[Rfam]
RNA sequence: AGCACUAUUUUUAAACCUGUUGAUGGAAUUUCCUGACCACCAUGGGUUACGCUGUAGUGCAAAAGAAUCUCCUGGCUUUUCACAGCACAGCUGACCUCGCUCAGUUCAGCUCGUGCUCCUCUAAAGCUAAGGAACAGAA
Numbered sequence: 001a002g003c004a005c006u007a008u009u010u011u012u013a014a015a016c017c018u019g020u021u022g023a024u025g026g027a028a029u030u031u032c033c034u035g036a037c038c039a040c041c042a043u044g045g046g047u048u049a050c051g052c053u054g055u056a057g058u059g060c061a062a063a064a065g066a067a068u069c070u071c072c073u074g075g076c077u078u079u080u081c082a083c084a085g086c087a088c089a090g091c092u093g094a095c096c097u098c099g100c101u102c103a104g105u106u107c108a109g110c111u112c113g114u115g116c117u118c119c120u121c122u123a124a125a126g127c128u129a130a131g132g133a134a135c136a137g138a139a
Stems, first nucleotide, its partner, number of pairs: 002060007014048004021042002024039003068134001070133004074128006082120001085116003089111003093107002

Small nucleolar RNA SNORA46: a 139-nucleotide RNA from Probosciger aterrimus.
The family's RNA type in Rfam is H/ACA-box small nucleolar RNA.
About the family: ACA46 is a member of the H/ACA class of snoRNA that guide the sites of modification of uridines to pseudouridines.